A member of the RNA family "Purine riboswitch aptamer" from Peptoclostridium litorale, 102 nucleotides long.
Gene Ontology term of the family: purine nucleobase biosynthetic process.
Pairs were carried over by alignment from the consensus structure, which is taken from published work.
RNA sequence: UAAAAAGCAUUUUGCUUUGCUCAUAUAAUCCCGGUAAUACGGUCUGGGAGUUUCUACAGGAAAGCCGUAAAAUUUCCUACUAUGAGCAAAACUUCUUGAAAA
Dot-bracket structure: .................((((((((...((((((.........))))))........((((((.........))))))..))))))))..............